Shown here is a 598-nucleotide part of an RNA from Drosophila erecta, a member of the family "Eukaryotic small subunit ribosomal RNA". NCBI's taxonomy places the organism under Eukaryota, Metazoa, Bilateria, Drosophila, Sophophora. Gene Ontology terms of the family: structural constituent of ribosome and ribosome. It is one of the family's seed sequences. Its Rfam clan is "SSU clan".

[Rfam]
RNA sequence: GAUCUCGCCCUGCUCUGAGUAGUUAUAUGCUUGUCUCAAAGAUUAAGCCAUGCAUGUCUAAGUACACACGAAUUAAAAGUGAAACCGCAAAAGGCUCAUUAUAUCAGUUAUGGUUCCUUAGAUCGUUAACAGUUACUUGGAUAAUUGUGGUAAUUCUAGAGCUUAUACAUGCAAUUAAAACAUAAACCUUAUGGGACAUGUGCUUUUAUUAGGCUAAAACCAAGUGAUCGCAAGAUCGUUAUAUUGGUUGAACUCUAGAUAAAAUGCAGAUCGUAUGGUCUUGUACCGACGACAGAUCAUUCAAAUGUCUGCCCUAUCAUCUUUUGAUGGUAGUAUCUAGGACUACCAUGGUUGCAACGGGUAACGGGCAAUCAGGGUUCGAUUCCGGAGAGGGAGCCUGAGAAACGGCUACCACAUCUAAGGAAGCCAGCAGGCUCGGGGAGAUAGUGACGAAAAAUAACAAUACAGGACUCAUAGCCGAGGCCCUGUAAUUGGAAUGAGUACACUUUAAAUCCUUUAACAAGGACCAAUUGGAGGGCAAGUCUGGUGCCAGCAGCCGCGGUAAUUCCAGCUCCAAUAGCGUAUAUUAAAGUUGUUG
Numbered sequence: 001g002a003u004c005u006c007g008c009c010c011u012g013c014u015c016u017g018a019g020u021a022g023u024u025a026u027a028u029g030c031u032u033g034u035c036u037c038a039a040a041g042a043u044u045a046a047g048c049c050a051u052g053c054a055u056g057u058c059u060a061a062g063u064a065c066a067c068a069c070g071a072a073u074u075a076a077a078a079g080u081g082a083a084a085c086c087g088c089a090a091a092a093g094g095c096u097c098a099u100u101a102u103a104u105c106a107g108u109u110a111u112g113g114u115u116c117c118u119u120a121g122a123u124c125g126u127u128a129a130c131a132g133u134u135a136c137u138u139g140g141a142u143a144a145u146u147g148u149g150g151u152a153a154u155u156c157u158a159g160a161g162c163u164u165a166u167a168c169a170u171g172c173a174a175u176u177a178a179a180a181c182a183u184a185a186a187c188c189u190u191a192u193g194g195g196a197c198a199u200g201u202g203c204u205u206u207u208a209u210u211a212g213g214c215u216a217a218a219a220c221c222a223a224g225u226g227a228u229c230g231c232a233a234g235a236u237c238g239u240u241a242u243a244u245u246g247g248u249u250g251a252a253c254u255c256u257a258g259a260u261a262a263a264a265u266g267c268a269g270a271u272c273g274u275a276u277g278g279u280c281u282u283g284u285a286c287c288g289a290c291g292a293c294a295g296a297u298c299a300u301u302c303a304a305a306u307g308u309c310u311g312c313c314c315u316a317u318c319a320u321c322u323u324u325u326g327a328u329g330g331u332a333g334u335a336u337c338u339a340g341g342a343c344u345a346c347c348a349u350g351g352u353u354g355c356a357a358c359g360g361g362u363a364a365c366g367g368g369c370a371a372u373c374a375g376g377g378u379u380c381g382a383u384u385c386c387g388g389a390g391a392g393g394g395a396g397c398c399u400g401a402g403a404a405a406c407g408g409c410u411a412c413c414a415c416a417u418c419u420a421a422g423g424a425a426g427c428c429a430g431c432a433g434g435c436u437c438g439g440g441g442a443g444a445u446a447g448u449g450a451c452g453a454a455a456a457a458u459a460a461c462a463a464u465a466c467a468g469g470a471c472u473c474a475u476a477g478c479c480g481a482g483g484c485c486c487u488g489u490a491a492u493u494g495g496a497a498u499g500a501g502u503a504c505a506c507u508u509u510a511a512a513u514c515c516u517u518u519a520a521c522a523a524g525g526a527c528c529a530a531u532u533g534g535a536g537g538g539c540a541a542g543u544c545u546g547g548u549g550c551c552a553g554c555a556g557c558c559g560c561g562g563u564a565a566u567u568c569c570a571g572c573u574c575c576a577a578u579a580g581c582g583u584a585u586a587u588u589a590a591a592g593u594u595g596u597u598g
Stems, first nucleotide, its partner, number of pairs: 004019003007013002021588003025585007034455001036453002040448001041437001047435003051432003056088002062085002068080002095390003105311003110306002114304002121298003136171001138169002145161002148158003180201004187194002206261001209258003219249001221247001227236003271292004276288004313361003321351002327349008365387004370379003392413002395410003415426001417424002461494003464490006471482003501521002503518001505517001531577006544571004553560002